[Rfam]
RNA sequence: CAUUUAACCUCACUGUUUAUUUUUGACUUCUUUUUCCUCCCAUAGUCGGAGGGGCGAACUCGUUUGUGAAAGAAAAGUCAAAAACAAACAGAAAGCCUCCCAAAUCGGGAGGCUUUUUUAU
Numbered sequence: 001c002a003u004u005u006a007a008c009c010u011c012a013c014u015g016u017u018u019a020u021u022u023u024u025g026a027c028u029u030c031u032u033u034u035u036c037c038u039c040c041c042a043u044a045g046u047c048g049g050a051g052g053g054g055c056g057a058a059c060u061c062g063u064u065u066g067u068g069a070a071a072g073a074a075a076a077g078u079c080a081a082a083a084a085c086a087a088a089c090a091g092a093a094a095g096c097c098u099c100c101c102a103a104a105u106c107g108g109g110a111g112g113c114u115u116u117u118u119u120a121u
Stems, first nucleotide, its partner, number of pairs: 015089004020084010031073003035069002039053003054063003093115009